[Rfam]
Nucleotides: 081
Base pairs, nucleotide, nucleotide: 008073009072010071011070012069013068014067015066016065017064018063019062020061022059024057025056026055027054028053029052032049033048034047
Number, partner (000 for none) and nucleotide at each position: 001000a002000g003000g004000c005000u006000g007000g008073g009072a010071g011070a012069g013068a014067g015066a016065g017064g018063c019062a020061g021000g022059g023000u024057c025056u026055g027054a028053u029052c030000c031000a032049c033048a034047g035000a036000c037000u038000c039000c040000a041000u042000g043000g044000c045000a046000g047034c048033u049032g050000u051000u052029g053028a054027u055026c056025a057024g058000c059022c060000a061020u062019u063018g064017c065016c066015u067014c068013u069012c070011u071010c072009u073008c074000c075000u076000u077000c078000u079000c080000c081000a
Shown here is an 81-nucleotide sequence from Myotis myotis, a member of the family "mir-574 microRNA precursor family". The family is grouped with related families in Rfam's "mir-574 microRNA precursor clan". Gene Ontology terms of the family: RISC complex and miRNA-mediated post-transcriptional gene silencing. Taxonomically the source falls in Myotis (Eukaryota, Teleostomi, Eutheria, Vespertilionidae).